[Rfam]
RNA sequence: GCUCGAAAAAGGCAAAGCACCUGAAAGGGUGUGACGCAAAGCCAACGGCCUGAAACCGGAAAGAAUGGAAAUGGCGGCAGGGCUGCCGAG
Number, nucleotide and partner (000 for none) at each position: 001g000002c000003u000004c000005g000006a000007a000008a000009a000010a000011g000012g037013c036014a000015a000016a000017g032018c031019a030020c029021c028022u027023g000024a000025a000026a000027g022028g021029g020030u019031g018032u017033g000034a000035c000036g013037c012038a000039a000040a084041g083042c082043c081044a000045a000046c000047g078048g075049c074050c073051u000052g000053a000054a000055a000056c068057c067058g066059g000060a000061a000062a000063g000064a000065a000066u058067g057068g056069a000070a000071a000072u000073g050074g049075c048076g000077g000078c047079a000080g000081g043082g042083c041084u040085g000086c000087c000088g000089a000090g000
A member of the RNA family "c-di-GMP-I riboswitch aptamer" from Desulfosarcina alkanivorans, 90 nucleotides long.
Lineage of the source: Bacteria > Thermodesulfobacteriota > Desulfobacteria > Desulfosarcinaceae > Desulfosarcina.